Rfam assigns this 79-nucleotide RNA from Esox lucius to the family "mir-19 microRNA precursor family". The family is grouped with related families in Rfam's "mir-19 clan". The base pairs follow the family's consensus structure, which was predicted with RNAalifold.
[Rfam]
RNA sequence: GGCUAUGGUCAGUUUUGCUGGUUUGCGGUCAGCUUUUCAAUGCACUGCUGUGCAAAUCCAUGCAAAACUGAUCACAGCA
Numbered sequence: 001g002g003c004u005a006u007g008g009u010c011a012g013u014u015u016u017g018c019u020g021g022u023u024u025g026c027g028g029u030c031a032g033c034u035u036u037u038c039a040a041u042g043c044a045c046u047g048c049u050g051u052g053c054a055a056a057u058c059c060a061u062g063c064a065a066a067a068c069u070g071a072u073c074a075c076a077g078c079a
Stems, first nucleotide, its partner, number of pairs: 003077002006074013020059002022056006031049003